Rfam assigns this 139-nucleotide sequence from Populus tomentosa to the family "MIR480 microRNA precursor family".
Gene Ontology terms of the family: miRNA-mediated post-transcriptional gene silencing and RISC complex.
The source organism's lineage runs through Eukaryota, Embryophyta, Gunneridae, Saliceae and Populus.
RNA sequence: UAAUCUGUCUGGGAUAUAUUCUUAUGUAGUUAUAAUAUAUUCACAUCAGACGGCUCAGAAUUAUCUGUUAUCACAGGGUCAACUAUAUCACACAUCAUGAAAAAAAAUAAACUAACAUAUGGAAAUACCUUAUCAGAUA
Numbered sequence: 001u002a003a004u005c006u007g008u009c010u011g012g013g014a015u016a017u018a019u020u021c022u023u024a025u026g027u028a029g030u031u032a033u034a035a036u037a038u039a040u041u042c043a044c045a046u047c048a049g050a051c052g053g054c055u056c057a058g059a060a061u062u063a064u065c066u067g068u069u070a071u072c073a074c075a076g077g078g079u080c081a082a083c084u085a086u087a088u089c090a091c092a093c094a095u096c097a098u099g100a101a102a103a104a105a106a107a108u109a110a111a112c113u114a115a116c117a118u119a120u121g122g123a124a125a126u127a128c129c130u131u132a133u134c135a136g137a138u139a
Stems, first nucleotide, its partner, number of pairs: 004137004008132001012128001014126002019122001023119003027114005
Dot-bracket structure: ...(((((...(.((...(...(((.(((((..............................................................................)))))..)))..)..)).)...).))))..